[Rfam]
Small nucleolar RNA SNORA38: a 130-nucleotide sequence from Ictidomys tridecemlineatus. Pairs were carried over by alignment from the consensus structure, which was predicted with RNAfold. Rfam 15.1 lists 628 matches to the family in 149 species. ACA38 is a member of the H/ACA class of snoRNA that guide the sites of modification of uridines to pseudouridines. Rfam's curators put it in the seed alignment. Taxonomically the source falls in Ictidomys (Eukaryota, Chordata, Amniota, Xerinae).

RNA sequence: CCCUCCUACAAAGGCGUGUCUUUGGUUCCCUGUCUUUGGACACGUAAGAACUGGAGGAAAAGAAUUGUGGAUUUGGGGAAGUCUGGGGCCAGCUUGCUCCUCGCGGGCUCAGAUCAGUCAUCCCACAUAG
Numbered sequence: 001c002c003c004u005c006c007u008a009c010a011a012a013g014g015c016g017u018g019u020c021u022u023u024g025g026u027u028c029c030c031u032g033u034c035u036u037u038g039g040a041c042a043c044g045u046a047a048g049a050a051c052u053g054g055a056g057g058a059a060a061a062g063a064a065u066u067g068u069g070g071a072u073u074u075g076g077g078g079a080a081g082u083c084u085g086g087g088g089c090c091a092g093c094u095u096g097c098u099c100c101u102c103g104c105g106g107g108c109u110c111a112g113a114u115c116a117g118u119c120a121u122c123c124c125a126c127a128u129a130g
Base pairs, nucleotide, nucleotide: 002057003056004055005054006053015044016043017042018041019040020039021038024030025029069123070122071121073120091109092108093107094106095105096104097103